[Rfam]
RNA: Salmonella enterica sRNA STnc280
RNA sequence: CGCGGCAAGACGUUCCGCGCUAUAACGAAAAAGGGGGUUCUGUCACUGGCUUUGCCCUCGUGAUAGAGGGCUUUUUAUGACGG
Numbered sequence: 001c002g003c004g005g006c007a008a009g010a011c012g013u014u015c016c017g018c019g020c021u022a023u024a025a026c027g028a029a030a031a032a033g034g035g036g037g038u039u040c041u042g043u044c045a046c047u048g049g050c051u052u053u054g055c056c057c058u059c060g061u062g063a064u065a066g067a068g069g070g071c072u073u074u075u076u077a078u079g080a081c082g083g
Stems, first nucleotide, its partner, number of pairs: 001019005054071006